[Rfam]
RNA sequence: CGUCGAGAACCCUUUCAAUCAAGUAAUGGAAUGAUUCAAGGGGUUCUCACAAAC
Numbered sequence: 001c002g003u004c005g006a007g008a009a010c011c012c013u014u015u016c017a018a019u020c021a022a023g024u025a026a027u028g029g030a031a032u033g034a035u036u037c038a039a040g041g042g043g044u045u046c047u048c049a050c051a052a053a054c
Base pairs, nucleotide, nucleotide: 005048006047007046008045009044010043011042012041013040014039015038017036018035019034020033021032
Plastid-ccsA-ndhD-1 3UTR RNA: a 54-nucleotide RNA. Rfam classes the family as a cis-regulatory element. The sequence is in the family's curated seed alignment. On this family, see Richter et al., Plant Commun 2023: "Retrograde signaling in plants: A critical review focusing on the GUN pathway and beyond".